Source information:
Bacterial small subunit ribosomal RNA: a 556-nucleotide part of an RNA from Spiroplasma eriocheiris. Its Rfam clan is "SSU clan". NCBI's taxonomy places the organism under Bacteria, Bacillati, Mycoplasmatota, Entomoplasmatales, Spiroplasma. The match comes from Rfam's covariance-model search (1567 bits).
RNA sequence: UUACAUGAGAGUUUGAUCCUGGCUCAGGAUGAACGCUGGCGGCAUGCCUAAUACAUGCAAGUCGAACGGGGUGCUUGCACCCAGUGGCGAACGGGUGAGUAACACGUAUCUAAUCUACCCAUUAGCGGGGGAUAACAGUUGGAAACGACUGCUAAUACCGCAUGAUAUCUUUGGAGGCAUCUUUGAAGGUUGAAAGGUCCGUUUGGACCACUAAUGGAUGAGGGUGCGGCGUAUUAGCUUGUUGGUGGGGUAAUGGCCUACCAAGGCGAUGAUACGUAGCCGACCUGAGAGGGUGAUCGGCCACAUCGGGACUGAGACACGGCCCGAACUCCUACGGGAGGCAGCAGUAGGGAAUUUUUCACAAUGGGCGAAAGCCUGAUGGAGCAAUGCCGCGUGACUGAAGACGGUCUUCGGAUUGUAAAGGUCUGUUGUAAGGGAAGAACAGCAAAUAUAGGAAAUGCUAUUUGUUUGACGGUACCUUACCAGAAAGCCACGGCUAACUAUGUGCCAGCAGCCGCGGUAAUACAUAGGUGGCAAGCGUUAUCCGGAUUUAUUG
Number, nucleotide and partner (000 for none) at each position: 001u000002u000003a000004c000005a000006u000007g000008a000009g025010a024011g023012u022013u021014u000015g000016a000017u000018c000019c000020u000021g013022g012023c011024u010025c009026a000027g546028g545029a544030u543031g000032a542033a541034c540035g539036c538037u537038g000039g393040c392041g391042g390043c389044a388045u386046g385047c351048c000049u000050a000051a000052u349053a348054c347055a000056u346057g345058c344059a000060a000061g088062u087063c086064g000065a000066a085067c084068g000069g082070g081071g080072u079073g078074c000075u000076u000077g000078c073079a072080c071081c070082c069083a000084g067085u066086g063087g062088c061089g000090a000091a000092c000093g000094g000095g304096u303097g302098a000099g000100u000101a000102a000103c000104a000105c228106g227107u226108a225109u224110c223111u222112a000113a000114u221115c220116u000117a000118c000119c217120c216121a215122u214123u213124a212125g211126c000127g161128g000129g159130g158131g000132a000133u000134a000135a000136c151137a150138g149139u148140u147141g146142g000143a000144a000145a000146c141147g140148a139149c138150u137151g136152c000153u000154a000155a000156u000157a000158c130159c129160g000161c127162a000163u000164g000165a000166u000167a190168u189169c188170u187171u186172u185173g184174g183175a182176g181177g000178c000179a000180u000181c176182u175183u174184u173185g172186a171187a170188g169189g168190u167191u000192g000193a000194a000195a000196g209197g208198u207199c000200c000201g000202u000203u000204u000205g000206g000207a198208c197209c196210a000211c125212u124213a123214a122215u121216g120217g119218a000219u000220g115221a114222g111223g110224g109225u108226g107227c106228g105229g000230c276231g275232u274233a000234u000235u000236a000237g267238c266239u265240u000241g000242u264243u263244g262245g261246u260247g259248g258249g257250g000251u000252a000253a000254u000255g000256g000257c249258c248259u247260a246261c245262c244263a243264a242265g239266g238267c237268g000269a000270u000271g000272a000273u000274a232275c231276g230277u000278a000279g301280c300281c299282g298283a294284c293285c292286u291287g000288a000289g000290a000291g286292g285293g284294u283295g000296a000297u000298c282299g281300g280301c279302c097303a096304c095305a000306u327307c326308g325309g324310g323311a000312c000313u000314g000315a000316g000317a000318c000319a000320c000321g000322g000323c310324c309325c308326g307327a306328a000329c340330u339331c338332c337333u000334a000335c000336g000337g332338g331339a330340g329341g000342c000343a000344g058345c057346a056347g054348u053349a052350g000351g047352g000353a000354a000355u000356u000357u383358u000359u382360c381361a380362c000363a000364a000365u378366g377367g376368g375369c374370g000371a000372a000373a000374g369375c368376c367377u366378g365379a000380u361381g360382g359383a357384g000385c046386a045387a000388u044389g043390c042391c041392g040393c039394g000395u000396g426397a425398c424399u423400g000401a000402a000403g000404a000405c000406g417407g416408u415409c414410u000411u000412c000413g000414g409415a408416u407417u406418g000419u000420a000421a000422a000423g399424g398425u397426c396427u000428g000429u000430u487431g483432u482433a481434a480435g479436g478437g000438a000439a000440g473441a000442a000443c000444a000445g000446c467447a466448a465449a464450u463451a462452u000453a000454g000455g000456a000457a000458a000459u000460g000461c000462u451463a450464u449465u448466u447467g446468u000469u000470u000471g000472a000473c440474g000475g000476u000477a000478c436479c435480u434481u433482a432483c431484c000485a000486g000487a430488a000489a000490g535491c534492c533493a532494c531495g000496g000497c000498u000499a000500a000501c530502u529503a528504u527505g526506u000507g000508c000509c000510a000511g518512c517513a000514g000515c000516c000517g512518c511519g000520g000521u000522a000523a000524u000525a000526c505527a504528u503529a502530g501531g494532u493533g492534g491535c490536a000537a037538g036539c035540g034541u033542u032543a030544u029545c028546c027547g000548g000549a000550u000551u000552u000553a000554u000555u000556g000